[Rfam]
RNA sequence: AAAAGAGGCUUCUGUCGUGAGUGGCACACGUGGGGCAGCUCAACUGCUCUUCGUGCAGAAUCGACAUCAAGAGAUUUUGGAAGCAUAAUUUUUUGGUACCUGGGCAGCUGGUGAUCAUUGGUCCCAGCACCCAG
Numbered sequence: 001a002a003a004a005g006a007g008g009c010u011u012c013u014g015u016c017g018u019g020a021g022u023g024g025c026a027c028a029c030g031u032g033g034g035g036c037a038g039c040u041c042a043a044c045u046g047c048u049c050u051u052c053g054u055g056c057a058g059a060a061u062c063g064a065c066a067u068c069a070a071g072a073g074a075u076u077u078u079g080g081a082a083g084c085a086u087a088a089u090u091u092u093u094u095g096g097u098a099c100c101u102g103g104g105c106a107g108c109u110g111g112u113g114a115u116c117a118u119u120g121g122u123c124c125c126a127g128c129a130c131c132c133a134g
Base pairs, nucleotide, nucleotide: 008084009083010082011081012080013026014025015024016023017022027055028054029053030052032050033049034048035047036046037045038044056079057078058077059076060075061074062073102132103131104130107128108127109126110125111124113123114122115121116120

The record is a 134-nucleotide sequence from Otolemur garnettii, which matches "U11 spliceosomal RNA" in Rfam.
Rfam links the family to the GO terms U11 snRNP, mRNA 5'-splice site recognition and pre-mRNA 5'-splice site binding.
The base pairs follow the family's consensus structure, which is taken from published work.
Rfam classes the family as a spliceosomal small nuclear RNA.
The family is grouped with related families in Rfam's "U1 clan".
It is one of the family's seed sequences.